[Rfam]
RNA sequence: GGUUUGCAGGCAGUGUAGUUAGCUGAUUGUAUAGUUCUCUGGCAAUCACUAGCUUCACUGUCAUCAAAAC
Numbered sequence: 001g002g003u004u005u006g007c008a009g010g011c012a013g014u015g016u017a018g019u020u021a022g023c024u025g026a027u028u029g030u031a032u033a034g035u036u037c038u039c040u041g042g043c044a045a046u047c048a049c050u051a052g053c054u055u056c057a058c059u060g061u062c063a064u065c066a067a068a069a070c
Base pairs, nucleotide, nucleotide: 003068004067005066006065009062010061012059013058014057015056017054018053019052020051021050022049024048025047026046027045028044029043030042